[Rfam]
The family of this 142-nucleotide sequence from Vibrio renipiscarius is "FMN riboswitch aptamer (RFN element)". Gene Ontology term of the family: FMN binding. The match comes from Rfam's covariance-model search (122 bits). The source organism's lineage runs through Bacteria, Pseudomonadota, Gammaproteobacteria, Vibrionaceae and Vibrio.
RNA sequence: UGUAAUUCUCAGGGCAGGGUGAAAGUCCCUACCGGCGGUAUAUCUUUUAUAGAUGAGCCCGCGAGCGCUCGAUGUUUCGAGGUCAGCAGAUCUGGUGAGAUGCCAGAGCCGACGGUCAUAGUCCGGAUGAGAGAGAAUGAGC
Numbered sequence: 001u002g003u004a005a006u007u008c009u010c011a012g013g014g015c016a017g018g019g020u021g022a023a024a025g026u027c028c029c030u031a032c033c034g035g036c037g038g039u040a041u042a043u044c045u046u047u048u049a050u051a052g053a054u055g056a057g058c059c060c061g062c063g064a065g066c067g068c069u070c071g072a073u074g075u076u077u078c079g080a081g082g083u084c085a086g087c088a089g090a091u092c093u094g095g096u097g098a099g100a101u102g103c104c105a106g107a108g109c110c111g112a113c114g115g116u117c118a119u120a121g122u123c124c125g126g127a128u129g130a131g132a133g134a135g136a137a138u139g140a141g142c
Stems, first nucleotide, its partner, number of pairs: 003140001005138006017029003031122002033111002035062004057109002065087002091107005113125003